This 78-nucleotide sequence from Geomonas silvestris belongs to the Rfam family "c-di-GMP-I riboswitch aptamer".

[Rfam]
RNA sequence: UAACGAUAAGACUAAACCAUCCGUGAGGGUGGGGCGGAAAGCCUAGGGUCUUCAAGUCAAGACAGCCGGGAUGCCGAA
Numbered sequence: 001u002a003a004c005g006a007u008a009a010g011a012c013u014a015a016a017c018c019a020u021c022c023g024u025g026a027g028g029g030u031g032g033g034g035c036g037g038a039a040a041g042c043c044u045a046g047g048g049u050c051u052u053c054a055a056g057u058c059a060a061g062a063c064a065g066c067c068g069g070g071a072u073g074c075c076g077a078a
Base pairs, nucleotide, nucleotide: 012037013036017032018031019030020029021028022027040072042070043069046067047066048063049062050061